[Rfam]
RNA sequence: GUUGUGUUUAUGAAAGCUUUCAUUUAAACCAUAAAAGAUGGCAAUGUUAGCUGGAUGUUUACAAU
Numbered sequence: 001g002u003u004g005u006g007u008u009u010a011u012g013a014a015a016g017c018u019u020u021c022a023u024u025u026a027a028a029c030c031a032u033a034a035a036a037g038a039u040g041g042c043a044a045u046g047u048u049a050g051c052u053g054g055a056u057g058u059u060u061a062c063a064a065u
Stems, first nucleotide, its partner, number of pairs: 001065005015052004021046004030040003
A member of the RNA family "Selenocysteine insertion sequence 1" from Apostichopus japonicus, 65 nucleotides long. Pairs were carried over by alignment from the consensus structure, which is taken from published work. It scores 35 bits against the family's covariance model. About the family: The incorporation of selenocysteine into a protein sequence is directed by an in-frame UGA codon (usually a stop codon) within the coding region of the mRNA. Selenoprotein mRNAs contain a conserved secondary structure in the 3' UTR that is required for the distinction of UGA stop from UGA selenocysteine. The selenocysteine insertion sequence (SECIS) is around 60 nt in length and adopts a hairpin structure which is sufficiently well-defined and conserved to act as a computational screen for selenoprotein genes.